[Rfam]
This 86-nucleotide RNA from Ramlibacter algicola belongs to the Rfam family "Burkholderia RNA 7 (anti-hemB)". The match comes from Rfam's covariance-model search (68 bits).
RNA sequence: UCCCCGCUUUUCCUCCCUGAGCGGGUGCCUUGAUGUGUGACAGCAAAAAGGCUUUCGGACCCCGGCUCAGGCCGGGGUUUUUUUAU
Number, nucleotide and partner (000 for none) at each position: 001u000002c000003c025004c024005c023006g022007c021008u020009u000010u000011u000012c000013c000014u000015c000016c000017c000018u000019g000020a008021g007022c006023g005024g004025g003026u000027g052028c051029c050030u049031u048032g000033a000034u000035g000036u000037g000038u000039g000040a000041c000042a000043g000044c000045a000046a000047a000048a031049a030050g029051g028052c027053u000054u000055u000056c000057g000058g000059a078060c077061c076062c075063c074064g073065g072066c071067u000068c000069a000070g000071g066072c065073c064074g063075g062076g061077g060078u059079u000080u000081u000082u000083u000084u000085a000086u000
The base pairs follow the family's consensus structure, which is taken from published work.
Its family is annotated with bacterial biofilm matrix and protein binding in the Gene Ontology.
NCBI's taxonomy places the organism under Bacteria, Pseudomonadota, Betaproteobacteria, Burkholderiales, Ramlibacter.
This RNA motif was identified by computational search in b-proteobacteria Burkholderia. Co-purified with Hfq, expression confirmed by Northern blot.